[Rfam]
A member of the RNA family "BsrG" from Oceanobacillus limi, 253 nucleotides long. bsrE, bsrG and bsrH pair through intermolecular interactions with antisense sRNAs. They form type I toxin/antitoxin system that includes an mRNA encoding for a short, toxic peptide (bsrE, bsrG and bsrH) and an antitoxin that is comprised of an antisense RNA. bsrG encodes a 39-amino-acid toxin, and the 180 nucleotide antisense sRNA called SR4 acts as the antitoxin (they overlap by 123 nucleotides). SR4 interaction with the 3'UTR of bsrG RNA promotes bsrG degradation and inhibits its translation. BsrG interferes with cell envelope biosynthesis, causes membrane invaginations and delocalisation of the cell wall synthesis and initiates autolysis. bsrE RNA encodes 30 amino-acid toxin peptide. Rfam classes the family as a small RNA. For this family Rfam cites "One antitoxin--two functions: SR4 controls toxin mRNA decay and translation" (Jahn and Brantl, Nucleic Acids Res, 2013).
RNA sequence: UGCAAUAAGGCUUCUUGGGUGGUGGCUCACUCCCUUUUUACCAAUGUUAGGAAAGGGGGUGAUGCGAUGACGGUAUUUGAGACAUUAGUAUUAAUGAUCUCAUUUUCAACGUUAGUUGUUGCGAUACUGUCAGAACGAAAAAAAUAACCACCCGUGCCUGGUAAGCGUUUAGGGUGGUUAUAUCGCCUGUUAACGUGAGCUGCCCCUCUGAAGGGCUAUUGCACAUGACUGUUUGGUGUUCGUAGCACCAAAC
Numbered sequence: 001u002g003c004a005a006u007a008a009g010g011c012u013u014c015u016u017g018g019g020u021g022g023u024g025g026c027u028c029a030c031u032c033c034c035u036u037u038u039u040a041c042c043a044a045u046g047u048u049a050g051g052a053a054a055g056g057g058g059g060u061g062a063u064g065c066g067a068u069g070a071c072g073g074u075a076u077u078u079g080a081g082a083c084a085u086u087a088g089u090a091u092u093a094a095u096g097a098u099c100u101c102a103u104u105u106u107c108a109a110c111g112u113u114a115g116u117u118g119u120u121g122c123g124a125u126a127c128u129g130u131c132a133g134a135a136c137g138a139a140a141a142a143a144a145u146a147a148c149c150a151c152c153c154g155u156g157c158c159u160g161g162u163a164a165g166c167g168u169u170u171a172g173g174g175u176g177g178u179u180a181u182a183u184c185g186c187c188u189g190u191u192a193a194c195g196u197g198a199g200c201u202g203c204c205c206c207u208c209u210g211a212a213g214g215g216c217u218a219u220u221g222c223a224c225a226u227g228a229c230u231g232u233u234u235g236g237u238g239u240u241c242g243u244a245g246c247a248c249c250a251a252a253c
Stems, first nucleotide, its partner, number of pairs: 001223005007217001009201005014156001016154006023146001027062003031059009069131007083096002106123001107121002167186002202216004231253010